This 78-nucleotide RNA sequence from Anabarilius grahami belongs to the Rfam family "mir-181 microRNA precursor family".
The source organism's lineage runs through Eukaryota, Neopterygii, Otophysi, Xenocyprididae and Anabarilius.
RNA sequence: GAGUCUCAGUGAACAUUCAACGCUGUCGGUGAGUUUGCAAGUCAAAGAAACCAUCGAGUGUUGAGUGUACCCUGCCUC
Numbered sequence: 001g002a003g004u005c006u007c008a009g010u011g012a013a014c015a016u017u018c019a020a021c022g023c024u025g026u027c028g029g030u031g032a033g034u035u036u037g038c039a040a041g042u043c044a045a046a047g048a049a050a051c052c053a054u055c056g057a058g059u060g061u062u063g064a065g066u067g068u069a070c071c072c073u074g075c076c077u078c
Base pairs, nucleotide, nucleotide: 001078002077003076007074008073014067015066016065017064018063019062020061021060022059026057027056028055029054030053031052033051034050035049036048
Background:
It scores 65 bits against the family's covariance model. Its family is annotated with miRNA-mediated post-transcriptional gene silencing and RISC complex in the Gene Ontology. The literature on the family includes a 2003 paper in RNA by Lagos-Quintana et al., "New microRNAs from mouse and human".